RNA sequence: UGAAGUCUUUGAGGCGGGGUGCGAUUCCCCACCGGCGGUACAGCCCGCAAGCCGAGAGGCAUGAUCCGGUGUGAUUCCGGAGCCGACAGUAUAGUCUGGAUGAUAAAAGACGGUC
Numbered sequence: 001u002g003a004a005g006u007c008u009u010u011g012a013g014g015c016g017g018g019g020u021g022c023g024a025u026u027c028c029c030c031a032c033c034g035g036c037g038g039u040a041c042a043g044c045c046c047g048c049a050a051g052c053c054g055a056g057a058g059g060c061a062u063g064a065u066c067c068g069g070u071g072u073g074a075u076u077c078c079g080g081a082g083c084c085g086a087c088a089g090u091a092u093a094g095u096c097u098g099g100a101u102g103a104u105a106a107a108a109g110a111c112g113g114u115c
Base pairs, nucleotide, nucleotide: 005111006110007109008108009107010106017029018028019027031095032094033085034084035048036047037046038045043083044082053059065081066080067079068078069077087098088097089096
Shown here is a 115-nucleotide RNA from Schwartzia succinivorans, a member of the family "FMN riboswitch aptamer (RFN element)". NCBI's taxonomy places the organism under Bacteria, Bacillati, Negativicutes, Schwartzia, Schwartzia succinivorans. Rfam's curators write: The RFN element is a highly conserved domain that is found frequently in the 5'-untranslated regions of prokaryotic mRNAs that encode for flavin mononucleotide (FMN) biosynthesis and transport proteins.